Annotation
Shown here is a 170-nucleotide RNA sequence from Eggerthia catenaformis, a member of the family "Lysine riboswitch aptamer". Riboswitches are metabolite binding domains within certain messenger RNAs that serve as precision sensors for their corresponding targets. Lineage of the source: Bacteria > Bacillati > Erysipelotrichales > Coprobacillaceae > Eggerthia catenaformis.

RNA sequence: AAAAGAAAUAGAGGUGCGGAAAUUAAGAAGUGACUAUUAUAUGAAUACAGUCAGAUAGUCAUAGAGGAAUAACGCCGAAGAAUUCUUAAAGCUGUAUAUGAAAGAAUUCUGGUGAGAUAGAGAAUAUCUAUAUCAUUGUCACAAAAUAUUUGUGGAGAGCUAUUGUAUAA
Numbered sequence: 001a002a003a004a005g006a007a008a009u010a011g012a013g014g015u016g017c018g019g020a021a022a023u024u025a026a027g028a029a030g031u032g033a034c035u036a037u038u039a040u041a042u043g044a045a046u047a048c049a050g051u052c053a054g055a056u057a058g059u060c061a062u063a064g065a066g067g068a069a070u071a072a073c074g075c076c077g078a079a080g081a082a083u084u085c086u087u088a089a090a091g092c093u094g095u096a097u098a099u100g101a102a103a104g105a106a107u108u109c110u111g112g113u114g115a116g117a118u119a120g121a122g123a124a125u126a127u128c129u130a131u132a133u134c135a136u137u138g139u140c141a142c143a144a145a146a147u148a149u150u151u152g153u154g155g156a157g158a159g160c161u162a163u164u165g166u167a168u169a170a
Base pairs, nucleotide, nucleotide: 007164008163009162010161011160016075017074018073022070023069024068031061032060033059034058035057036056037055038054079110080109081108082107083106084105085104086103087102090099111137112136113135114134115133117131118130119129120128121127139155140154141153142152143151144150145149

Background:
The match comes from Rfam's covariance-model search (74 bits).